The family of this 264-nucleotide RNA from Fulmarus glacialis is "Small Cajal body specific RNA 6". Its family is annotated with RNA processing and nucleolus in the Gene Ontology. About the family: U88 is small Cajal body specific RNA (scaRNA). scaRNAs are a novel class of small nuclear RNAs which localise to the Cajal bodies. U88 is found associated with both fibrillarin and Gar1p and co-localises with coilin in Cajal bodies. NCBI's taxonomy places the organism under Eukaryota, Chordata, Euteleostomi, Procellariiformes, Fulmarus.

[Rfam]
RNA sequence: GGUCUGUGAUGAACAGUAAAAGGUCUGAUUAUCCCAAGACUUGCACUUCCAUGACCUUUUCUCCCAGCAGUUUCUCACCGGUCACGGCACAGUAAUGAUGUGGCUGGCAGAGCGUUUGCUGACAGCUCGUGAUGUGUUCAGUUCAUGUUAACCUGAAGUGUCAGAGGCAUGACUGGGACCAGUAUCCAACAGUCUUACUUUGAAGGAGUUUGGGGUCUUGGAUUGUUAUAACUGGACGUUUGAUCUGACUUUUCUGCUGAGUCC
Number, nucleotide and partner (000 for none) at each position: 001g264002g263003u000004c261005u000006g000007u000008g000009a000010u000011g000012a000013a000014c000015a000016g000017u000018a000019a000020a000021a000022g000023g000024u000025c000026u000027g000028a000029u000030u000031a000032u000033c000034c000035c000036a000037a246038g245039a244040c000041u242042u000043g000044c000045a000046c000047u000048u222049c221050c220051a219052u000053g217054a216055c000056c000057u000058u000059u000060u000061c208062u207063c206064c205065c121066a120067g119068c118069a117070g116071u000072u000073u000074c000075u000076c000077a000078c107079c106080g105081g104082u103083c102084a101085c100086g099087g000088c000089a000090c000091a000092g000093u000094a000095a000096u000097g000098a000099u086100g085101u084102g083103g082104c081105u080106g079107g078108c000109a000110g000111a000112g000113c000114g000115u000116u070117u069118g068119c067120u066121g065122a000123c000124a000125g000126c000127u000128c000129g187130u000131g186132a185133u184134g183135u182136g000137u000138u000139c000140a000141g000142u000143u000144c171145a170146u169147g168148u167149u166150a000151a000152c000153c164154u000155g000156a000157a000158g000159u000160g000161u000162c000163a000164g153165a000166g149167g148168c147169a146170u145171g144172a000173c000174u000175g000176g000177g000178a000179c000180c000181a000182g135183u134184a133185u132186c131187c129188a000189a000190c000191a000192g000193u000194c000195u000196u000197a000198c000199u000200u000201u000202g000203a000204a000205g064206g063207a062208g061209u000210u000211u000212g000213g000214g000215g000216u054217c053218u000219u051220g050221g049222a048223u000224u000225g000226u000227u000228a000229u000230a000231a000232c000233u000234g000235g000236a000237c000238g000239u000240u000241u000242g041243a000244u039245c038246u037247g000248a000249c000250u000251u000252u000253u000254c000255u000256g000257c000258u000259g000260a000261g004262u000263c002264c001